Shown here is a 71-nucleotide RNA sequence, a member of the family "Pistol ribozyme". It is one of the family's seed sequences. On this family, see Weinberg et al., Nat Chem Biol 2015: "New classes of self-cleaving ribozymes revealed by comparative genomics analysis". Its family is annotated with catalytic activity in the Gene Ontology.
RNA sequence: ACUGGACUACGCCAGUAUAAAUAGGCAUUAAGCGUAGUGCGUUCCAAUGUUGUGAAACAUCGGAGGUUGUU
Numbered sequence: 001a002c003u004g005g006a007c008u009a010c011g012c013c014a015g016u017a018u019a020a021a022u023a024g025g026c027a028u029u030a031a032g033c034g035u036a037g038u039g040c041g042u043u044c045c046a047a048u049g050u051u052g053u054g055a056a057a058c059a060u061c062g063g064a065g066g067u068u069g070u071u
Base pairs, nucleotide, nucleotide: 001016002015003014004013006038007037008036009035010034011033024071025070026069027068032040042065043064044063045062047060048059049058050057051056